[Rfam]
RNA sequence: AAACAGGCUCUUUUAAGAGUCACCCAUAUAAAAAAAAAAUUGAAC
Numbered sequence: 001a002a003a004c005a006g007g008c009u010c011u012u013u014u015a016a017g018a019g020u021c022a023c024c025c026a027u028a029u030a031a032a033a034a035a036a037a038a039a040u041u042g043a044a045c
Base pairs, nucleotide, nucleotide: 006021007020008019009018010017011016

The family of this 45-nucleotide RNA from Coregonus sp. 'balchen' is "Histone 3' UTR stem-loop". The mRNAs of metazoan histone genes lack a poly-A tail. 3' end processing occurs at a site between a highly conserved stem-loop (modelled by this family) and a purine rich region around 20 nts downstream (the histone downstream element, or HDE). The stem-loop is bound by a 31 kDa stem-loop binding protein (SLBP - also termed the histone hairpin binding protein, or HBP). Together with U7 snRNA binding of the HDE, SLBP binding nucleate s the formation of the processing complex. The family's consensus secondary structure is taken from published work.